A member of the RNA family "M-box riboswitch aptamer (ykoK leader)" from Lactococcus allomyrinae, 160 nucleotides long.

[Rfam]
RNA sequence: GCUAACUAUCGGUAGGUGAGGCUACCACAGGGAUACGGGUUGCUGCCGCAGAGUCGUGGAGACACGAUGAGAGGGCCAACAGUUCAUGUCGAAAAACAAGGCAUGAAAUAGUGCAACAACAUCGCCCUGUGGAGCUAAAGCUUGAACGAUGACAUGAAUU
Numbered sequence: 001g002c003u004a005a006c007u008a009u010c011g012g013u014a015g016g017u018g019a020g021g022c023u024a025c026c027a028c029a030g031g032g033a034u035a036c037g038g039g040u041u042g043c044u045g046c047c048g049c050a051g052a053g054u055c056g057u058g059g060a061g062a063c064a065c066g067a068u069g070a071g072a073g074g075g076c077c078a079a080c081a082g083u084u085c086a087u088g089u090c091g092a093a094a095a096a097c098a099a100g101g102c103a104u105g106a107a108a109u110a111g112u113g114c115a116a117c118a119a120c121a122u123c124g125c126c127c128u129g130u131g132g133a134g135c136u137a138a139a140g141c142u143u144g145a146a147c148g149a150u151g152a153c154a155u156g157a158a159u160u
Stems, first nucleotide, its partner, number of pairs: 007154001009152002011147001013099001015142003020136003025132008039117005046074002049071001055066004083107003088102003
From the family's description: M-box riboswitch, also know as ykoK leader is described as a metaloregulatory RNA that sense divalent metals and function as a genetic control element of genes related to divalent metal transport in bacteria. On this family, see Dann CE 3rd et al., Cell 2007: "Structure and mechanism of a metal-sensing regulatory RNA". It scores 106 bits against the family's covariance model.